Shown here is a 150-nucleotide RNA sequence from Aspergillus pseudotamarii, a member of the family "A. fumigatus sRNA Afu_254".

[Rfam]
RNA sequence: AUACCAAACUACUCUACUACUUUCAUUCGAACAAUCCAGUUCAUACCAAUCCCUUCUACAACCAUGUCUCCCUGCAACUGCAACUGCUGCUCCGGCGACUGCAACUCUUGCUCUUGCAGCUCUUGCAAGGUAUGCACUCACCUAUCUACC
Numbered sequence: 001a002u003a004c005c006a007a008a009c010u011a012c013u014c015u016a017c018u019a020c021u022u023u024c025a026u027u028c029g030a031a032c033a034a035u036c037c038a039g040u041u042c043a044u045a046c047c048a049a050u051c052c053c054u055u056c057u058a059c060a061a062c063c064a065u066g067u068c069u070c071c072c073u074g075c076a077a078c079u080g081c082a083a084c085u086g087c088u089g090c091u092c093c094g095g096c097g098a099c100u101g102c103a104a105c106u107c108u109u110g111c112u113c114u115u116g117c118a119g120c121u122c123u124u125g126c127a128a129g130g131u132a133u134g135c136a137c138u139c140a141c142c143u144a145u146c147u148a149c150c
Base pairs, nucleotide, nucleotide: 073097074096075095080090081089082088101126102125103124110117111116
Taxonomically the source falls in Aspergillus subgen. Circumdati (Eukaryota, saccharomyceta, Pezizomycotina, Eurotiomycetes). The base pairs follow the family's consensus structure, which was predicted with WAR. The family's RNA type in Rfam is small RNA.